Nucleotides: 130
Base pairs, nucleotide, nucleotide: 003061004060005059006058007057011052012051015049016048017047018046022040023039024038025037026036028034073122074120075119083110084109085108088104089103090102091101092100
Number, partner (000 for none) and nucleotide at each position: 001000u002000u003061u004060a005059u006058u007057u008000a009000u010000c011052u012051g013000a014000c015049a016048g017047a018046c019000c020000u021000g022040c023039a024038g025037c026036a027000g028034u029000u030000a031000c032000u033000g034028g035000a036026u037025g038024c039023u040022g041000u042000u043000a044000a045000a046018g047017u048016u049015u050000c051012c052011a053000c054000u055000a056000c057007a058006g059005a060004u061003g062000c063000a064000a065000g066000a067000a068000a069000a070000g071000u072000g073122u074120c075119c076000c077000a078000c079000a080000c081000u082000u083110u084109c085108u086000g087000u088104c089103u090102g091101u092100c093000u094000g095000a096000u097000u098000g099000u100092g101091a102090c103089a104088g105000c106000u107000a108085a109084g110083a111000u112000u113000a114000a115000a116000u117000c118000a119075g120074g121000u122073a123000g124000g125000a126000c127000a128000g129000u130000a